[Rfam]
RNA sequence: CUGCUGUGAUGACUUUCUUAGGACACCUUUGGAUUAACCAUGAAAAUGAUAACAUUCUGAGCAGC
Numbered sequence: 001c002u003g004c005u006g007u008g009a010u011g012a013c014u015u016u017c018u019u020a021g022g023a024c025a026c027c028u029u030u031g032g033a034u035u036a037a038c039c040a041u042g043a044a045a046a047u048g049a050u051a052a053c054a055u056u057c058u059g060a061g062c063a064g065c
Stems, first nucleotide, its partner, number of pairs: 001064004

The family of this 65-nucleotide RNA from Echinops telfairi is "Small nucleolar RNA SNORD58". Gene Ontology terms of the family: RNA processing and nucleolus. From the family's description: snoRNA U58 is found in introns 1, 3 and 6 of the ribosomal protein RPL17 gene in humans. The family is grouped with related families in Rfam's "SNORD58 clan". The family's RNA type in Rfam is C/D-box small nucleolar RNA. For this family Rfam cites "Site-specific ribose methylation of preribosomal RNA: a novel function for small nucleolar RNAs" (Kiss-Laszlo et al., Cell, 1996). The source organism's lineage runs through Eukaryota, Amniota, Afrotheria, Tenrecidae and Echinops.